RNA: mir-148/mir-152 microRNA precursor family
RNA sequence: CUUGGCCGAAGUUCUGUGAUACACUAAGACUCUAAGUCAGUUGCAGUCAGUGCAUAACAGAACUUUGGCUCGGA
Numbered sequence: 001c002u003u004g005g006c007c008g009a010a011g012u013u014c015u016g017u018g019a020u021a022c023a024c025u026a027a028g029a030c031u032c033u034a035a036g037u038c039a040g041u042u043g044c045a046g047u048c049a050g051u052g053c054a055u056a057a058c059a060g061a062a063c064u065u066u067g068g069c070u071c072g073g074a
Stems, first nucleotide, its partner, number of pairs: 004070013022052004028048004